Shown here is an 89-nucleotide RNA from Streptomyces sp. PBH53, a member of the family "ZMP/ZTP riboswitch aptamer (pfl RNA motif)".
RNA sequence: CGAGCGGGCCGUGACUGGCGCGCUGGGAUGGGACGGACCAUCGGGGAGCGGCCCGAGCGGGAAGAGUGCCGUGCGCCUGGGCCGAACGU
Numbered sequence: 001c002g003a004g005c006g007g008g009c010c011g012u013g014a015c016u017g018g019c020g021c022g023c024u025g026g027g028a029u030g031g032g033a034c035g036g037a038c039c040a041u042c043g044g045g046g047a048g049c050g051g052c053c054c055g056a057g058c059g060g061g062a063a064g065a066g067u068g069c070c071g072u073g074c075g076c077c078u079g080g081g082c083c084g085a086a087c088g089u
Stems, first nucleotide, its partner, number of pairs: 005055008015045002017077005028041004068082003

The organism belongs to Streptomyces, within Bacteria. Pairs were carried over by alignment from the consensus structure, which is taken from published work.